[Rfam]
Nucleotides: 097
Stems, first nucleotide, its partner, number of pairs: 007052006015042002020039002022036001023033003054069006072092001074095001078090003
Number, partner (000 for none) and nucleotide at each position: 001000u002000c003000u004000u005000u006000g007052g008051c009050u010049u011048u012047c013000u014000a015042g016041g017000g018000u019000u020039c021038c022036g023033u024032a025031c026000a027000u028000u029000c030000a031025g032024u033023a034000g035000u036022c037000u038021g039020g040000u041016c042015c043000g044000a045000g046000a047012g048011a049010a050009a051008g052007c053000a054069c055068a056067u057066a058065g059064c060000a061000a062000c063000a064059g065058c066057u067056a068055u069054g070000g071000a072092c073000a074095c075000g076000g077000a078090g079089g080088g081000a082000g083000a084000a085000a086000a087000g088080c089079c090078c091000g092072g093000g094000a095074g096000g097000u
Record summary: This 97-nucleotide RNA from Halalkalibacter krulwichiae belongs to the Rfam family "Guanidine-I riboswitch aptamer". Lineage of the source: Bacteria > Bacilli > Caryophanales > Bacillaceae > Halalkalibacter. It scores 82 bits against the family's covariance model. This family represents a conserved RNA structure found upstream of the ykkC and yxkD genes in Bacillus subtilis and related genes in other bacteria. Gene Ontology term of the family: regulation of gene expression.